[Rfam]
RNA sequence: UCACUCUGGUUUUCCUUCAGAGCGCAAAAAUCUUUCGCCUUUUACUAAAGAUUUCCGUGGAGGAGAACAACAUAAUGAGUCUAUAAACUAAUUUUUUGUUGCCCUGCCUUAUGGCGGGGCU
Number, nucleotide and partner (000 for none) at each position: 001u000002c000003a080004c079005u078006c077007u000008g000009g068010u067011u066012u065013u064014c063015c062016u061017u060018c059019a058020g000021a000022g000023c000024g000025c000026a000027a000028a054029a053030a052031u051032c050033u049034u048035u047036c000037g000038c000039c000040u000041u000042u000043u000044a000045c000046u000047a035048a034049a033050g032051a031052u030053u029054u028055c000056c000057g000058u019059g018060g017061a016062g015063g014064a013065g012066a011067a010068c009069a000070a000071c000072a000073u000074a000075a000076u000077g006078a005079g004080u003081c000082u000083a000084u000085a000086a000087a000088c000089u000090a000091a000092u000093u000094u000095u000096u000097u000098g000099u000100u000101g120102c119103c118104c117105u116106g115107c000108c000109u000110u000111a000112u000113g000114g000115c106116g105117g104118g103119g102120c101121u000
The record is a 121-nucleotide sequence from Nematostella vectensis, which matches "U5 spliceosomal RNA" in Rfam.
The organism belongs to Nematostella, within Eukaryota.
Its family is annotated with U5 snRNP and spliceosomal tri-snRNP complex assembly in the Gene Ontology.
The family's RNA type in Rfam is spliceosomal small nuclear RNA.
The base pairs follow the family's consensus structure, which is taken from published work.